[Rfam]
RNA sequence: GAUUCUCUAGGCAAUGAAGCUUGCCUUGGAGAACAAUCCUCCAGAACCGCCACCAGCUAAUAGCUUCUACCAAAAU
Numbered sequence: 001g002a003u004u005c006u007c008u009a010g011g012c013a014a015u016g017a018a019g020c021u022u023g024c025c026u027u028g029g030a031g032a033a034c035a036a037u038c039c040u041c042c043a044g045a046a047c048c049g050c051c052a053c054c055a056g057c058u059a060a061u062a063g064c065u066u067c068u069a070c071c072a073a074a075a076u
Stems, first nucleotide, its partner, number of pairs: 010025004016067006049057002
Rfam assigns this 76-nucleotide RNA from Mesotoga prima to the family "Fluoride riboswitch aptamer (crcB RNA motif)".
The match comes from Rfam's covariance-model search (36 bits).
The organism belongs to Mesotoga prima, within Bacteria.